[Rfam]
Group II catalytic intron D1-D4-1: an 86-nucleotide RNA from Sporomusa sphaeroides. A search with the family's covariance model found it, with a score of 67 bits. The pairing is the family consensus, mapped onto this sequence. Gene Ontology term of the family: Group II intron splicing. Group II introns are found in rRNA, tRNA and mRNA of organelles in fungi, plants and protists, and also in mRNA in bacteria. Taxonomically the source falls in Sporomusa sphaeroides (Bacteria, Bacillota, Negativicutes, Sporomusa).
RNA sequence: CAAGCCUUGCAGCGAUGCAUGGCUAAACUGUCAGAAGUCAGCAGAGGCCAUACUACCAGGAUGGAUAUAUACACCCUGGGAAGGGC
Numbered sequence: 001c002a003a004g005c006c007u008u009g010c011a012g013c014g015a016u017g018c019a020u021g022g023c024u025a026a027a028c029u030g031u032c033a034g035a036a037g038u039c040a041g042c043a044g045a046g047g048c049c050a051u052a053c054u055a056c057c058a059g060g061a062u063g064g065a066u067a068u069a070u071a072c073a074c075c076c077u078g079g080g081a082a083g084g085g086c
Base pairs, nucleotide, nucleotide: 002024004023005022006021008019009018010017011016038045039044047086048085049084056079057078058077059076060075